A member of the RNA family "Small nucleolar RNA ZL2" from Dipodomys ordii, 75 nucleotides long.
RNA sequence: GGCCUCGCGUGAUGGAUACGUGCCCUGGGAUGACCGUGACCUAACUGGGAUGUAUUCGUACUGUCUGAUGGGGUC
Number, nucleotide and partner (000 for none) at each position: 001g075002g074003c073004c072005u071006c070007g069008c000009g000010u000011g065012a064013u063014g062015g061016a000017u000018a059019c058020g055021u054022g053023c052024c049025c048026u000027g046028g045029g000030a000031u000032g041033a000034c000035c000036g000037u000038g000039a000040c000041c032042u000043a000044a000045c028046u027047g000048g025049g024050a000051u000052g023053u022054a021055u020056u000057c000058g019059u018060a000061c015062u014063g013064u012065c011066u000067g000068a000069u007070g006071g005072g004073g003074u002075c001
Rfam links the family to the GO terms RNA processing and nucleolus. The family has 6 seed sequences and 126 matches in Rfam 15.1. It scores 76 bits against the family's covariance model. For this family Rfam cites "Insights into snoRNA biogenesis and processing from PAR-CLIP of snoRNA core proteins and small RNA sequencing" (Kishore et al., Genome Biol, 2013). By type it is a C/D-box small nucleolar RNA.